[Rfam]
RNA: L31-Actinobacteria ribosomal protein leader
RNA sequence: GAGGUUCCGGUUCACGCCCGCCAACGGGGCGAGGCGACCCGGGUCACC
Numbered sequence: 001g002a003g004g005u006u007c008c009g010g011u012u013c014a015c016g017c018c019c020g021c022c023a024a025c026g027g028g029g030c031g032a033g034g035c036g037a038c039c040c041g042g043g044u045c046a047c048c
Base pairs, nucleotide, nucleotide: 003048004047005046007042008041009040010039015036016035017034018033019031020030021029022028